[Rfam]
RNA sequence: AAUUAAUGAACAUCGGCUAAAAACGCCACGUCCUGUGGCAACACCGAUGAGACCUACAUCCUGUAGG
Numbered sequence: 001a002a003u004u005a006a007u008g009a010a011c012a013u014c015g016g017c018u019a020a021a022a023a024c025g026c027c028a029c030g031u032c033c034u035g036u037g038g039c040a041a042c043a044c045c046g047a048u049g050a051g052a053c054c055u056a057c058a059u060c061c062u063g064u065a066g067g
Stems, first nucleotide, its partner, number of pairs: 011049006025039005053067005
The family of this 67-nucleotide sequence from Peribacillus faecalis is "Bacillaceae-1 RNA". Pairs were carried over by alignment from the consensus structure, which is taken from published work. A search with the family's covariance model found it, with a score of 76 bits.